[Rfam]
A member of the RNA family "mir-9195 microRNA precursor family" from Myotis brandtii, 87 nucleotides long. Rfam 15.1 lists 438 matches to the family in 7 species. Lineage of the source: Eukaryota > Euteleostomi > Theria > Laurasiatheria > Myotis. Gene Ontology terms of the family: miRNA-mediated post-transcriptional gene silencing and RISC complex.
RNA sequence: AAAGGCCCUCCGCGGCCGUGGUGGAACGCUUGCCUCGUUGCCACGGCAAUGAAGCAAGCAUUCCGCCAGGCCACUCACGCUGCCCAC
Numbered sequence: 001a002a003a004g005g006c007c008c009u010c011c012g013c014g015g016c017c018g019u020g021g022u023g024g025a026a027c028g029c030u031u032g033c034c035u036c037g038u039u040g041c042c043a044c045g046g047c048a049a050u051g052a053a054g055c056a057a058g059c060a061u062u063c064c065g066c067c068a069g070g071c072c073a074c075u076c077a078c079g080c081u082g083c084c085c086a087c
Stems, first nucleotide, its partner, number of pairs: 004084003012074001014072004020067007028059006037050005